Notes:
A member of the RNA family "XIST RNA A repeat" from Cathartes aura, 62 nucleotides long. On this family, see Duszczyk et al., RNA 2011: "The Xist RNA A-repeat comprises a novel AUCG tetraloop fold and a platform for multimerization". NCBI's taxonomy places the organism under Eukaryota, Sauropsida, Saurischia, Telluraves, Cathartes.
[Rfam]
RNA sequence: UGGCCCAUCUGGGCCGUGGAACUGUGCUCCAGAGCAAUCUGCCAUGUGGACUGCUUUUUUUU
Number, nucleotide and partner (000 for none) at each position: 001u000002g000003g014004c013005c012006c011007a000008u000009c000010u000011g006012g005013g004014c003015c000016g000017u053018g052019g051020a000021a000022c000023u000024g000025u000026g000027c000028u000029c000030c000031a000032g000033a000034g000035c000036a000037a000038u000039c000040u000041g000042c000043c000044a000045u000046g000047u000048g000049g000050a000051c019052u018053g017054c000055u000056u000057u000058u000059u000060u000061u000062u000